[Rfam]
RNA sequence: AUAGUUCUUCAGGGCAGGGUUAAAUUCCCGACCGGCGGUGAUAGUCCGCGAGCCUUUUUAGGUUGACUCAGUGCAAUUCUGAGACCGACAGUACAGUCUGGAUGGAAGAAGAAAAAU
Numbered sequence: 001a002u003a004g005u006u007c008u009u010c011a012g013g014g015c016a017g018g019g020u021u022a023a024a025u026u027c028c029c030g031a032c033c034g035g036c037g038g039u040g041a042u043a044g045u046c047c048g049c050g051a052g053c054c055u056u057u058u059u060a061g062g063u064u065g066a067c068u069c070a071g072u073g074c075a076a077u078u079c080u081g082a083g084a085c086c087g088a089c090a091g092u093a094c095a096g097u098c099u100g101g102a103u104g105g106a107a108g109a110a111g112a113a114a115a116a117u
Base pairs, nucleotide, nucleotide: 005113006112007111008110009109010108017029018028019027031097032096033087034086035049036048037047038046044085045084052063053062054061067083068082069081070080071079089100090099091098

Record summary
This 117-nucleotide sequence from Enterococcus pallens belongs to the Rfam family "FMN riboswitch aptamer (RFN element)". From the family's description: The RFN element is a highly conserved domain that is found frequently in the 5'-untranslated regions of prokaryotic mRNAs that encode for flavin mononucleotide (FMN) biosynthesis and transport proteins. A search with the family's covariance model found it, with a score of 115 bits. The source organism's lineage runs through Bacteria, Bacillota, Enterococcaceae, Enterococcus and Enterococcus pallens. A reference for the family is Wilt et al. (2020), "FMN riboswitch aptamer symmetry facilitates conformational switching through mutually exclusive coaxial stacking configurations", J Struct Biol X.